[Rfam]
RNA sequence: CUUCCUCUUGGCGCGGAGGUUUAACUGCGCUCGCUCCCCAUAUCGGUGUGGGCGCACCGGAUUUACAAAUUAAAGUCCUUUAGGGAGCGGAAAGGGAC
Numbered sequence: 001c002u003u004c005c006u007c008u009u010g011g012c013g014c015g016g017a018g019g020u021u022u023a024a025c026u027g028c029g030c031u032c033g034c035u036c037c038c039c040a041u042a043u044c045g046g047u048g049u050g051g052g053c054g055c056a057c058c059g060g061a062u063u064u065a066c067a068a069a070u071u072a073a074a075g076u077c078c079u080u081u082a083g084g085g086a087g088c089g090g091a092a093a094g095g096g097a098c
Stems, first nucleotide, its partner, number of pairs: 005018004010031004034087005043060005
Dot-bracket structure: ....((((.[[[[.)))).........]]]]..(((((....(((((........)))))......................)))))...........